[Rfam]
RNA sequence: GCCGGGCUCGGUGGCUUGUGCCUGUAAUCCCAGCUGCGGGGAGGCUGAGGCUGGCGGAUCGCUGAGCCCGGGGGUUCUGGGCUGCAGGGCUGUGCCGAGCGGGCGUCCAGGCUAAGGUCGGCACCGAUAUGGUGGCCCUGGGGGAGCCGGGGGCCACCAGGUCGCCUAAGGAGGGGUGAACCGGCCCAGGUCGGAGACGGAGCAGGUCAAAGCUCCCGUGCCGCUCGGUAGCGGGACGGCGCCUGUGAGCAGCCCCUGGAGAGCAGCCCGGGCGGCAGCACGGGACCCAGCCUCUU
Numbered sequence: 001g002c003c004g005g006g007c008u009c010g011g012u013g014g015c016u017u018g019u020g021c022c023u024g025u026a027a028u029c030c031c032a033g034c035u036g037c038g039g040g041g042a043g044g045c046u047g048a049g050g051c052u053g054g055c056g057g058a059u060c061g062c063u064g065a066g067c068c069c070g071g072g073g074g075u076u077c078u079g080g081g082c083u084g085c086a087g088g089g090c091u092g093u094g095c096c097g098a099g100c101g102g103g104c105g106u107c108c109a110g111g112c113u114a115a116g117g118u119c120g121g122c123a124c125c126g127a128u129a130u131g132g133u134g135g136c137c138c139u140g141g142g143g144g145a146g147c148c149g150g151g152g153g154c155c156a157c158c159a160g161g162u163c164g165c166c167u168a169a170g171g172a173g174g175g176g177u178g179a180a181c182c183g184g185c186c187c188a189g190g191u192c193g194g195a196g197a198c199g200g201a202g203c204a205g206g207u208c209a210a211a212g213c214u215c216c217c218g219u220g221c222c223g224c225u226c227g228g229u230a231g232c233g234g235g236a237c238g239g240c241g242c243c244u245g246u247g248a249g250c251a252g253c254c255c256c257u258g259g260a261g262a263g264c265a266g267c268c269c270g271g272g273c274g275g276c277a278g279c280a281c282g283g284g285a286c287c288c289a290g291c292c293u294c295u296u
Stems, first nucleotide, its partner, number of pairs: 001045003004023004009018003028042003047294008059283003063278001066273007077266003082261002085258005090252004095247001099246008107235002111232004116226002119223006125164004130159010141148002165171002173216005183208004191200003

The family of this 296-nucleotide sequence from Copsychus sechellarum is "Metazoan signal recognition particle RNA". The family has 91 seed sequences and 383,523 matches in Rfam 15.1. The signal recognition particle (SRP) is a universally conserved ribonucleoprotein. It is involved in the co-translational targeting of proteins to membranes. The eukaryotic SRP consists of a 300-nucleotide 7S RNA and six proteins: SRPs 72, 68, 54, 19, 14, and 9. Archaeal SRP consists of a 7S RNA and homologues of the eukaryotic SRP19 and SRP54 proteins. Eukaryotic and archaeal 7S RNAs have very similar secondary structures, as represented by this family. Eight helical elements fold into the Alu and S domains, separated by a long linker region. The Alu domain is thought to mediate the peptide chain elongation retardation function of the SRP. The universally conserved helix which interacts with the SRP54 M domain mediates signal sequence recognition. In eukaryotes and archaea, the SRP19-helix 6 complex is thought to be involved in SRP assembly and stabilises helix 8 for SRP54 binding. The Signal Recognition Particle Database (SRPDB) provides compilations of SRP components, with phylogenetic data and structural illustrations. Many sequences below the threshold for this family are clearly closely related, but are most likely to be SRP RNA derived pseudogenes. The human genome in particular is known to contain a large amount of SRP RNA related sequence, including Alu repeats. While the threshold of this family is set high so as to minimise the number of hits to such regions, it is likely that some remain. It scores 199 bits against the family's covariance model.